This 60-nucleotide RNA belongs to the Rfam family "Glutamine-II riboswitch aptamer". The family's consensus secondary structure is taken from published work.
[Rfam]
RNA sequence: AAACGUUCACCCCUGUGCGCAGGGGCGCAGACACUCCAAGCCACGGAACGGGGACUUGGA
Number, nucleotide and partner (000 for none) at each position: 001a000002a000003a000004c050005g049006u048007u047008c046009a000010c025011c024012c023013c022014u021015g000016u000017g000018c000019g000020c000021a014022g013023g012024g011025g010026c000027g000028c000029a000030g000031a000032c000033a000034c000035u060036c059037c058038a057039a056040g055041c053042c052043a000044c000045g000046g008047a007048a006049c005050g004051g000052g042053g041054a000055c040056u039057u038058g037059g036060a035